The record is an 82-nucleotide RNA from Clupea harengus, which matches "Mammalian CPEB3 ribozyme" in Rfam. Gene Ontology term of the family: RNA nuclease activity. NCBI's taxonomy places the organism under Eukaryota, Eumetazoa, Gnathostomata, Teleostomi, Clupea. The base pairs follow the family's consensus structure, which is taken from published work. It scores 60 bits against the family's covariance model. The family has 14 seed sequences and 5,706 matches in Rfam 15.1.
[Rfam]
RNA sequence: AGUGGGGAGAUGGGGAUCAUAGUAGAAGCGUUCACGUUCGCGAUCCCUGAGAGGUUUAAGGUUUAAACCUGCAAAUUCUACC
Numbered sequence: 001a002g003u004g005g006g007g008a009g010a011u012g013g014g015g016a017u018c019a020u021a022g023u024a025g026a027a028g029c030g031u032u033c034a035c036g037u038u039c040g041c042g043a044u045c046c047c048u049g050a051g052a053g054g055u056u057u058a059a060g061g062u063u064u065a066a067a068c069c070u071g072c073a074a075a076u077u078c079u080a081c082c
Stems, first nucleotide, its partner, number of pairs: 013047006022081006028041003052070006